A member of the RNA family "Plastid-clpP 5UTR RNA" from Musa balbisiana, 69 nucleotides long.
On this family, see Richter et al., Plant Commun 2023: "Retrograde signaling in plants: A critical review focusing on the GUN pathway and beyond".
The organism belongs to Musa, within Eukaryota.
Rfam's curators write: Plastid clpP is a non-coding RNA (ncRNA) recognised in plastids.

[Rfam]
RNA sequence: AAUUCUGUGCGUAAGAAACAAAGAGAGCAGAUAGAUUCUAUACCCGAUAAGUACCAAUACGCAAUGGAG
Numbered sequence: 001a002a003u004u005c006u007g008u009g010c011g012u013a014a015g016a017a018a019c020a021a022a023g024a025g026a027g028c029a030g031a032u033a034g035a036u037u038c039u040a041u042a043c044c045c046g047a048u049a050a051g052u053a054c055c056a057a058u059a060c061g062c063a064a065u066g067g068a069g
Stems, first nucleotide, its partner, number of pairs: 003023002006020003010015001044067002051060003